[Rfam]
RNA sequence: CAAAGUUGUUGCAGUUAAAAAGCUCGUAGCUGAAUCACGGGUCCGGUGCGGCCGCGGGAGCCCCUUUGCUGCGGUCGGGUCGGUGUCUGGUCUUCGGGCCGGCCCGGCUCGGUCGUUGGUGAGGGGGUCUUCUCGAUUCGGCCGUUCUUCAACCAGUUAGCGACCUGAACGUCGGACGCCUCCCGGUGCCCUUAAUUGCGGUGUCUCGAGGUCCCGGCCAGUUUACUUUGAAAAAACAAGAGUGCUCAAAGCAGGUCUCGAAAGAAACUAGCCUGAAUUCUUUAGCAUGGAAUAAUGGAAUAGGACCUCGGUUCUGUUCUGUUGGUCUUUUUCCGAACUGGAGGUAAUGAUUAAGAGGGACUGCCGGGGGCAUUCGUAUUGCGGGGCGAGAGGUGAAAUUCUUGGACCCUCGCAAGACGAACAACAGCGAAAGCAUUUGCCAAGAAUGUUUUCAUUAGUCAAGAACGAAAGUCAGAGGUUCGAAGACGAUCAGAUACCGUCCUAGUUCUGACCAUAAACGAUGCCAACUAGCAGUUCGAGGGCGUUUGUUACGGACCUCUCGAGCGGCCUCCGGGAAACCAAAGUGCUUGGGUUCCGG
Numbered sequence: 001c002a003a004a005g006u007u008g009u010u011g012c013a014g015u016u017a018a019a020a021a022g023c024u025c026g027u028a029g030c031u032g033a034a035u036c037a038c039g040g041g042u043c044c045g046g047u048g049c050g051g052c053c054g055c056g057g058g059a060g061c062c063c064c065u066u067u068g069c070u071g072c073g074g075u076c077g078g079g080u081c082g083g084u085g086u087c088u089g090g091u092c093u094u095c096g097g098g099c100c101g102g103c104c105c106g107g108c109u110c111g112g113u114c115g116u117u118g119g120u121g122a123g124g125g126g127g128u129c130u131u132c133u134c135g136a137u138u139c140g141g142c143c144g145u146u147c148u149u150c151a152a153c154c155a156g157u158u159a160g161c162g163a164c165c166u167g168a169a170c171g172u173c174g175g176a177c178g179c180c181u182c183c184c185g186g187u188g189c190c191c192u193u194a195a196u197u198g199c200g201g202u203g204u205c206u207c208g209a210g211g212u213c214c215c216g217g218c219c220a221g222u223u224u225a226c227u228u229u230g231a232a233a234a235a236a237c238a239a240g241a242g243u244g245c246u247c248a249a250a251g252c253a254g255g256u257c258u259c260g261a262a263a264g265a266a267a268c269u270a271g272c273c274u275g276a277a278u279u280c281u282u283u284a285g286c287a288u289g290g291a292a293u294a295a296u297g298g299a300a301u302a303g304g305a306c307c308u309c310g311g312u313u314c315u316g317u318u319c320u321g322u323u324g325g326u327c328u329u330u331u332u333c334c335g336a337a338c339u340g341g342a343g344g345u346a347a348u349g350a351u352u353a354a355g356a357g358g359g360a361c362u363g364c365c366g367g368g369g370g371c372a373u374u375c376g377u378a379u380u381g382c383g384g385g386g387c388g389a390g391a392g393g394u395g396a397a398a399u400u401c402u403u404g405g406a407c408c409c410u411c412g413c414a415a416g417a418c419g420a421a422c423a424a425c426a427g428c429g430a431a432a433g434c435a436u437u438u439g440c441c442a443a444g445a446a447u448g449u450u451u452u453c454a455u456u457a458g459u460c461a462a463g464a465a466c467g468a469a470a471g472u473c474a475g476a477g478g479u480u481c482g483a484a485g486a487c488g489a490u491c492a493g494a495u496a497c498c499g500u501c502c503u504a505g506u507u508c509u510g511a512c513c514a515u516a517a518a519c520g521a522u523g524c525c526a527a528c529u530a531g532c533a534g535u536u537c538g539a540g541g542g543c544g545u546u547u548g549u550u551a552c553g554g555a556c557c558u559c560u561c562g563a564g565c566g567g568c569c570u571c572c573g574g575g576a577a578a579c580c581a582a583a584g585u586g587c588u589u590g591g592g593u594u595c596c597g598g
Stems, first nucleotide, its partner, number of pairs: 012597001014595001020594001022466001024464002029459003357453004361448001365444001369441004375419002379415008390401003427434002471512006481505001485501004523593003527585002531568002535564008544556003573580002
Dot-bracket structure: ...........(.(.....(.(.((...(((.....................................................................................................................................................................................................................................................................................................................................(((((...(...((((..((..((((((((...(((......)))......))))))))..)).......((....))...))))..)...).))))...)))...)).)....((((((....(...((((.........))))...).))))))..........(((.((..((..((((((((.(((.......)))))))))))..))....((....))...)).....))))).).
Record summary:
This 598-nucleotide part of an RNA from Proscoloplos cygnochaetus belongs to the Rfam family "Eukaryotic small subunit ribosomal RNA". The family's consensus secondary structure is taken from published work.